Alphaproteobacteria transfer-messenger RNA: a 351-nucleotide RNA from Sphingomonas lycopersici. The family's consensus secondary structure is taken from published work. The match comes from Rfam's covariance-model search (205 bits). Taxonomically the source falls in Sphingomonas (Bacteria, Pseudomonadati, Pseudomonadota, Sphingomonadaceae).

RNA sequence: GGGCUUUUAGUUUUCGUACCAAGCCCCUAUAUCGGUCUCGCUCGCGGGGCUCGCCCCACGGCUAUGGCGAUAAACGCCGGCGAUUAAUAGGCGCAGCGGACCCGGGGGCAGUACCCGGCGGCUCCACCACCAACCGUCCGUUCCACGGACGGGUGAUGACGGGGCCGAACCAGGAUCGACGUGUGUUGAAAAGCGCUGGCUUUUGCUCGGAAUGGGACCACCGUGACGGCCCGUACACAAGUGCCAACGAUAACGAGGCGCUCGCGAUUGCCGCGUAAUCAGUGACCUAACGGUCUAGAUUACAAGGACAAAAGCGCGGUUGGACCGCACCGGGCAACAGAAGCGGAUUCC
Numbered sequence: 001g002g003g004c005u006u007u008u009a010g011u012u013u014u015c016g017u018a019c020c021a022a023g024c025c026c027c028u029a030u031a032u033c034g035g036u037c038u039c040g041c042u043c044g045c046g047g048g049g050c051u052c053g054c055c056c057c058a059c060g061g062c063u064a065u066g067g068c069g070a071u072a073a074a075c076g077c078c079g080g081c082g083a084u085u086a087a088u089a090g091g092c093g094c095a096g097c098g099g100a101c102c103c104g105g106g107g108g109c110a111g112u113a114c115c116c117g118g119c120g121g122c123u124c125c126a127c128c129a130c131c132a133a134c135c136g137u138c139c140g141u142u143c144c145a146c147g148g149a150c151g152g153g154u155g156a157u158g159a160c161g162g163g164g165c166c167g168a169a170c171c172a173g174g175a176u177c178g179a180c181g182u183g184u185g186u187u188g189a190a191a192a193g194c195g196c197u198g199g200c201u202u203u204u205g206c207u208c209g210g211a212a213u214g215g216g217a218c219c220a221c222c223g224u225g226a227c228g229g230c231c232c233g234u235a236c237a238c239a240a241g242u243g244c245c246a247a248c249g250a251u252a253a254c255g256a257g258g259c260g261c262u263c264g265c266g267a268u269u270g271c272c273g274c275g276u277a278a279u280c281a282g283u284g285a286c287c288u289a290a291c292g293g294u295c296u297a298g299a300u301u302a303c304a305a306g307g308a309c310a311a312a313a314g315c316g317c318g319g320u321u322g323g324a325c326c327g328c329a330c331c332g333g334g335c336a337a338c339a340g341a342a343g344c345g346g347a348u349u350c351c
Stems, first nucleotide, its partner, number of pairs: 040062003066207005076200007092185003096182003102118005119167007208223003213233003218229002317332004323349002326346001